Annotation: Rfam assigns this 35-nucleotide sequence from Sciurus carolinensis to the family "Iron response element I". The family's consensus secondary structure is taken from published work. The organism belongs to Sciurus, within Eukaryota. By type it is a cis-regulatory element. Rfam links the family to the GO term response to iron ion. For this family Rfam cites "Repression of Manduca sexta ferritin synthesis by IRP1/IRE interaction" (Zhang et al., Insect Mol Biol, 2001).

RNA sequence: UUGUCUCUUGCUUUAACAGUGUUUGAAUGGAACAG
Number, nucleotide and partner (000 for none) at each position: 001u035002u034003g033004u032005c000006u031007c030008u029009u000010g028011c000012u027013u026014u025015a024016a023017c021018a000019g000020u000021g017022u000023u016024u015025g014026a013027a012028u010029g008030g007031a006032a004033c003034a002035g001